Description: The family of this 67-nucleotide sequence from Halalkalibacter nanhaiisediminis is "Bacillaceae-1 RNA". Rfam classes the family as a small RNA. The family's consensus secondary structure is taken from published work.
[Rfam]
RNA sequence: GUGUUGAUAAACUUGGCUAAAAUCGCUCACCUCAUGUGAGCAACGCCGAGUACCCAAGUCGUGUGGG
Numbered sequence: 001g002u003g004u005u006g007a008u009a010a011a012c013u014u015g016g017c018u019a020a021a022a023u024c025g026c027u028c029a030c031c032u033c034a035u036g037u038g039a040g041c042a043a044c045g046c047c048g049a050g051u052a053c054c055c056a057a058g059u060c061g062u063g064u065g066g067g
Stems, first nucleotide, its partner, number of pairs: 011051007026040005053067004
The match comes from Rfam's covariance-model search (38 bits).